[Rfam]
RNA: MicL sRNA
Organism: Citrobacter rodentium
Nucleotides: 308
Base pairs, nucleotide, nucleotide: 003276004275005274009270010269011268012267013266014265015264016041017040018039022036023035024034025033026032045082046081050078051077054075055074056073057072061068084130087127088126091122093120094119095118100116101115102114103112104111105110131141133139146161148159149158150157166263167262170259171258172257177254179252180251181250182249183248184247185245188242189241193240194239195238196237199234200233201232202231203230204229205228206227207226208225213222214221215220277301278300279299280298281297282296283295284294
Number, partner (000 for none) and nucleotide at each position: 001000u002000a003276u004275g005274g006000c007000c008000g009270g010269a011268g012267c013266a014265g015264g016041g017040g018039u019000u020000c021000g022036u023035g024034c025033a026032g027000a028000a029000a030000a031000u032026u033025u034024g035023c036022a037000g038000c039018g040017u041016u042000u043000c044000c045082u046081c047000g048000a049000u050078g051077c052000c053000g054075g055074g056073g057072u058000a059000c060000g061068g062000g063000a064000a065000g066000u067000a068061c069000a070000c071000a072057g073056c074055u075054c076000a077051g078050c079000c080000g081046g082045a083000a084130c085000u086000c087127u088126g089000a090000u091122g092000c093120c094119c095118u096000c097000a098000c099000c100116g101115a102114u103112g104111c105110g106000c107000u108000a109000u110105c111104g112103c113000a114102a115101u116100c117000c118095a119094g120093g121000g122091u123000u124000g125000u126088c127087a128000a129000u130084g131141u132000c133139a134000g135000c136000c137000g138000a139133u140000a141131a142000a143000c144000a145000g146161g147000c148159g149158g150157a151000u152000g153000a154000a155000u156000a157150u158149u159148c160000c161146c162000g163000c164000u165000a166263u167262g168000c169000g170259g171258u172257a173000g174000a175000c176000g177254g178000u179252g180251c181250g182249g183248c184247a185245g186000u187000c188242g189241c190000u191000g192000a193240a194239a195238u196237g197000a198000a199234a200233g201232g202231a203230a204229u205228c206227a207226u208225u209000g210000u211000u212000c213222g214221c215220c216000a217000u218000c219000a220215g221214g222213c223000c224000a225208a226207a227206u228205g229204a230203u231202u232201u233200u234199u235000a236000c237196c238195g239194u240193u241189g242188c243000a244000u245185c246000a247184u248183g249182u250181c251180g252179c253000c254177c255000a256000a257172u258171a259170u260000g261000a262167u263166g264015c265014u266013u267012g268011c269010u270009c271000g272000u273000a274005c275004c276003a277301g278300g279299c280298c281297c282296c283295u284294g285000c286000c287000a288000a289000u290000u291000c292000a293000a294284c295283a296282g297281g298280g299279g300278c301277c302000u303000u304000u305000u306000u307000u308000u